Overview
This 97-nucleotide sequence from Streptomyces sp. NWU339 belongs to the Rfam family "Glycine riboswitch aptamer". The match comes from Rfam's covariance-model search (50 bits). The organism belongs to Streptomyces, within Bacteria. The family has 44 seed sequences and 9,425 matches in Rfam 15.1. From the family's description: This family represents the bacterial glycine riboswitch.

RNA sequence: CAUCCCGCUGCGGGAGAGCACCGGGUCAGCCAGACCCGGGCGCCGAAGGAGCAACACCUCCCCGGAAACUCUCAGGCACCCCUACCGCUCGGGCAGG
Numbered sequence: 001c002a003u004c005c006c007g008c009u010g011c012g013g014g015a016g017a018g019c020a021c022c023g024g025g026u027c028a029g030c031c032a033g034a035c036c037c038g039g040g041c042g043c044c045g046a047a048g049g050a051g052c053a054a055c056a057c058c059u060c061c062c063c064g065g066a067a068a069c070u071c072u073c074a075g076g077c078a079c080c081c082c083u084a085c086c087g088c089u090c091g092g093g094c095a096g097g
Stems, first nucleotide, its partner, number of pairs: 006092001010088004021039005042077003045073002049071003055064001